[Rfam]
RNA sequence: AAGUUAUCAAGAAAGGCGGAGGGAAUAGACCCUGUGAAACCUUAGCAACCCUUUCUCUUGAAAGAAGGUGCUACAUUCUAUCCUGAUUAUAGGAAUAGAUAACCC
Numbered sequence: 001a002a003g004u005u006a007u008c009a010a011g012a013a014a015g016g017c018g019g020a021g022g023g024a025a026u027a028g029a030c031c032c033u034g035u036g037a038a039a040c041c042u043u044a045g046c047a048a049c050c051c052u053u054u055c056u057c058u059u060g061a062a063a064g065a066a067g068g069u070g071c072u073a074c075a076u077u078c079u080a081u082c083c084u085g086a087u088u089a090u091a092g093g094a095a096u097a098g099a100u101a102a103c104c105c
Stems, first nucleotide, its partner, number of pairs: 003103006013043004021032003026080004044072004049068002051064004076097001081094005
Annotation:
A member of the RNA family "SAM riboswitch aptamer (S box leader)" from Dokdonia pacifica, 105 nucleotides long. A search with the family's covariance model found it, with a score of 75 bits. Rfam's curators write: The SAM riboswitch is found upstream of a number of genes which code for proteins involved in methionine or cysteine biosynthesis in Gram-positive bacteria. Rfam links the family to the GO term regulation of gene expression. The family's consensus secondary structure is taken from published work.